[Rfam]
RNA sequence: GGGGGUGUAGCUCAGUUGGUAGAGCGCGUCGUUCGCAAUGACGAGGUCAGCGGUUCGAUCCCGCUCACCUCCA
Numbered sequence: 001g002g003g004g005g006u007g008u009a010g011c012u013c014a015g016u017u018g019g020u021a022g023a024g025c026g027c028g029u030c031g032u033u034c035g036c037a038a039u040g041a042c043g044a045g046g047u048c049a050g051c052g053g054u055u056c057g058a059u060c061c062c063g064c065u066c067a068c069c070u071c072c073a
Stems, first nucleotide, its partner, number of pairs: 001072007010025004027043005049065005
Source information: tRNA: a 73-nucleotide RNA sequence from Falsiroseomonas stagni. By type it is a transfer RNA.